Shown here is a 121-nucleotide sequence from Centaurea solstitialis, a member of the family "Small nucleolar RNA snoR99". For this family Rfam cites "Experimental RNomics: identification of 140 candidates for small non-messenger RNAs in the plant Arabidopsis thaliana" (Marker et al., Curr Biol, 2002). By type it is an H/ACA-box small nucleolar RNA. Rfam 15.1 lists 733 matches to the family in 222 species. It scores 66 bits against the family's covariance model.

[Rfam]
RNA sequence: UUGCUUUAGGGAUGGAAUGAUGUCCCCUGAGAUUCGAUCCAUCCUCUUCACUUUGUCAGCGAUUUCAUUAGUCUUUUGACUAGUUCUUACGAGUUGCUGAUCAUUUACGGAUGGGAGAUUU
Numbered sequence: 001u002u003g004c005u006u007u008a009g010g011g012a013u014g015g016a017a018u019g020a021u022g023u024c025c026c027c028u029g030a031g032a033u034u035c036g037a038u039c040c041a042u043c044c045u046c047u048u049c050a051c052u053u054u055g056u057c058a059g060c061g062a063u064u065u066c067a068u069u070a071g072u073c074u075u076u077u078g079a080c081u082a083g084u085u086c087u088u089a090c091g092a093g094u095u096g097c098u099g100a101u102c103a104u105u106u107a108c109g110g111a112u113g114g115g116a117g118a119u120u121u
Base pairs, nucleotide, nucleotide: 038115039114040113041112042111043110055101056100057099058098059097060096061095062094063093064092065091